[Rfam]
RNA sequence: AAUGAUCGGGAUGUGGACCUAUCCUCCCAAAAACAGCCCGAUCGACCGACAACAUCCUCCUCCCAGUUGCCGGUCAGACGAAUGGACGCCCGCCGGAUAACUCAUCCGGCGGGCGUCUUCG
Numbered sequence: 001a002a003u004g005a006u007c008g009g010g011a012u013g014u015g016g017a018c019c020u021a022u023c024c025u026c027c028c029a030a031a032a033a034c035a036g037c038c039c040g041a042u043c044g045a046c047c048g049a050c051a052a053c054a055u056c057c058u059c060c061u062c063c064c065a066g067u068u069g070c071c072g073g074u075c076a077g078a079c080g081a082a083u084g085g086a087c088g089c090c091c092g093c094c095g096g097a098u099a100a101c102u103c104a105u106c107c108g109g110c111g112g113g114c115g116u117c118u119u120c121g
Base pairs, nucleotide, nucleotide: 007040008039009038012035013034014032044075045074046073047072048071050069051068052067053066086116087115088114089113090112091111092110093109094108095107096106

A member of the RNA family "Alphaproteobacterial ar14" from Rhizobium metallidurans, 121 nucleotides long. A reference for the family is Robledo et al. (2017), "A conserved alpha-proteobacterial small RNA contributes to osmoadaptation and symbiotic efficiency of rhizobia on legume roots", Environ Microbiol. The match comes from Rfam's covariance-model search (61 bits). The base pairs follow the family's consensus structure. From the family's description: Smr14C2 was renamed NfeR1 (Nodule Formation Efficiency RNA) highly expressed in salt stress and during the symbiotic interaction on legume roots. Gene Ontology term of the family: biological process involved in symbiotic interaction.